The record is a 75-nucleotide sequence from Solihabitans fulvus, which matches "ASpks TB sRNA" in Rfam. By type it is an antisense RNA.

RNA sequence: CUUCAACGUGCCCAGCCACAGCGGUUCCCGGUCGGCGCGGUGCUGGCCGUAGGUCGCCAGCAGCGCCUGGGCCUC
Numbered sequence: 001c002u003u004c005a006a007c008g009u010g011c012c013c014a015g016c017c018a019c020a021g022c023g024g025u026u027c028c029c030g031g032u033c034g035g036c037g038c039g040g041u042g043c044u045g046g047c048c049g050u051a052g053g054u055c056g057c058c059a060g061c062a063g064c065g066c067c068u069g070g071g072c073c074u075c
Stems, first nucleotide, its partner, number of pairs: 014026004032070002038065002043060003047056001049054001